[Rfam]
RNA sequence: UUCACAAGCUAGGGGAGCCGAUAAUGGCUGAGAGGAGAAAUCCGACCCUUUGAACCUGAUAUGGAUAAUACCAGCGAAGGAAAGCUUAGAGAAUGCUAU
Numbered sequence: 001u002u003c004a005c006a007a008g009c010u011a012g013g014g015g016a017g018c019c020g021a022u023a024a025u026g027g028c029u030g031a032g033a034g035g036a037g038a039a040a041u042c043c044g045a046c047c048c049u050u051u052g053a054a055c056c057u058g059a060u061a062u063g064g065a066u067a068a069u070a071c072c073a074g075c076g077a078a079g080g081a082a083a084g085c086u087u088a089g090a091g092a093a094u095g096c097u098a099u
Stems, first nucleotide, its partner, number of pairs: 006087005011049004017028004035042002055080003062073003

Shown here is a 99-nucleotide sequence from Desulfuribacillus stibiiarsenatis, a member of the family "TPP riboswitch aptamer (THI element)". Pairs were carried over by alignment from the consensus structure, which is taken from published work.